[Rfam]
RNA: radC RNA
Organism: Nitrosomonas eutropha
RNA sequence: AUCCUUAAAACAUGUUCGCUGGCGUAGCUGGCAGCAUCCCAGGCAGUCAAGGCCAUCAAGACUGCGGCGAACCUACAGUUCGCUGGCUGAUCUCAUCUCCGGACGCUCAUCGUCCAUUCCAACCCCAAGGGACCAUUCAUCCCUAUGGGGGUGAG
Numbered sequence: 001a002u003c004c005u006u007a008a009a010a011c012a013u014g015u016u017c018g019c020u021g022g023c024g025u026a027g028c029u030g031g032c033a034g035c036a037u038c039c040c041a042g043g044c045a046g047u048c049a050a051g052g053c054c055a056u057c058a059a060g061a062c063u064g065c066g067g068c069g070a071a072c073c074u075a076c077a078g079u080u081c082g083c084u085g086g087c088u089g090a091u092c093u094c095a096u097c098u099c100c101g102g103a104c105g106c107u108c109a110u111c112g113u114c115c116a117u118u119c120c121a122a123c124c125c126c127a128a129g130g131g132a133c134c135a136u137u138c139a140u141c142c143c144u145a146u147g148g149g150g151g152u153g154a155g
Stems, first nucleotide, its partner, number of pairs: 012037003015033001018032006043065006051088004066084007117155003124149004129144003
Dot-bracket structure: ...........((((..((((((...))))))).))).....((((((..[[[[.....))))))(((((((.....)))))))]]]]............................(((....((((.(((..........))).))))...)))